[Rfam]
RNA: SAM riboswitch aptamer (S box leader)
Organism: Mucilaginibacter pallidiroseus
RNA sequence: UAAUUAUCAAGAAAGACUGAGGGAAAGGCCCGAUGAUGUCUUAGCAACCUGUACGCCAAAAGUAUAAAGGUGCUAAUUCCUGCCUGCAGCAAUGCAGAAAAGAUAAUGU
Number, nucleotide and partner (000 for none) at each position: 001u000002a000003a107004u106005u105006a104007u103008c102009a000010a000011g000012a000013a042014a041015g040016a039017c038018u000019g000020a000021g031022g030023g029024a000025a000026a081027g080028g079029c023030c022031c021032g000033a000034u000035g000036a000037u000038g017039u016040c015041u014042u013043a074044g073045c072046a071047a000048c070049c069050u066051g065052u064053a063054c000055g000056c000057c000058a000059a000060a000061a000062g000063u053064a052065u051066a050067a000068a000069g049070g048071u046072g045073c044074u043075a000076a000077u000078u101079c028080c027081u026082g000083c000084c097085u096086g095087c094088a093089g000090c000091a000092a000093u088094g087095c086096a085097g084098a000099a000100a000101a078102g008103a007104u006105a005106a004107u003108g000109u000